Rfam assigns this 210-nucleotide part of an RNA from Cordyceps sp. RAO-2017 to the family "Ascomycota telomerase RNA". Clan: Telomerase clan. Rfam classes the family as a non-coding RNA gene.

RNA sequence: UCCCCCAGUUUCCCGAUCCUCGUUUUCCGCAAGGAAUGUCUACCGCAGACCCCCCUCCAGGACUCGUUGAACACAAUAUGCCGCUUCCGAGCCUGUAUCAGGACCUCGUCGCACGCCGCACUUGGAUCUAUUGUGCUUCUCACUGUCGGUCACUAGACGGUACGGUCCAGCUGGGGGAACGAGGGUCGGAACUUAACCCUAAGCAUACAC
Numbered sequence: 001u002c003c004c005c006c007a008g009u010u011u012c013c014c015g016a017u018c019c020u021c022g023u024u025u026u027c028c029g030c031a032a033g034g035a036a037u038g039u040c041u042a043c044c045g046c047a048g049a050c051c052c053c054c055c056u057c058c059a060g061g062a063c064u065c066g067u068u069g070a071a072c073a074c075a076a077u078a079u080g081c082c083g084c085u086u087c088c089g090a091g092c093c094u095g096u097a098u099c100a101g102g103a104c105c106u107c108g109u110c111g112c113a114c115g116c117c118g119c120a121c122u123u124g125g126a127u128c129u130a131u132u133g134u135g136c137u138u139c140u141c142a143c144u145g146u147c148g149g150u151c152a153c154u155a156g157a158c159g160g161u162a163c164g165g166u167c168c169a170g171c172u173g174g175g176g177g178a179a180c181g182a183g184g185g186u187c188g189g190a191a192c193u194u195a196a197c198c199c200u201a202a203g204c205a206u207a208c209a210c
Stems, first nucleotide, its partner, number of pairs: 007193003013189004

Lineage of the source: Eukaryota > Fungi > Ascomycota > Sordariomycetes > Cordyceps.